[Rfam]
RNA sequence: GUUUCGCGCGAAGGCAAGAUGUCGGCAUAGCUGACGUGCUAAUCCGAGUGUAGCUGUGUUACAUCGUGCCAACGUGAACCGCU
Numbered sequence: 001g002u003u004u005c006g007c008g009c010g011a012a013g014g015c016a017a018g019a020u021g022u023c024g025g026c027a028u029a030g031c032u033g034a035c036g037u038g039c040u041a042a043u044c045c046g047a048g049u050g051u052a053g054c055u056g057u058g059u060u061a062c063a064u065c066g067u068g069c070c071a072a073c074g075u076g077a078a079c080c081g082c083u
Stems, first nucleotide, its partner, number of pairs: 007076004013070004018065004024060008
A member of the RNA family "mir-31 microRNA precursor family" from Daphnia pulex, 83 nucleotides long. The family's consensus secondary structure was predicted with RNAalifold. The source organism's lineage runs through Eukaryota, Bilateria, Ecdysozoa, Mandibulata and Daphnia. Rfam links the family to the GO terms gene silencing by miRNA and RISC complex. It is one of the family's seed sequences.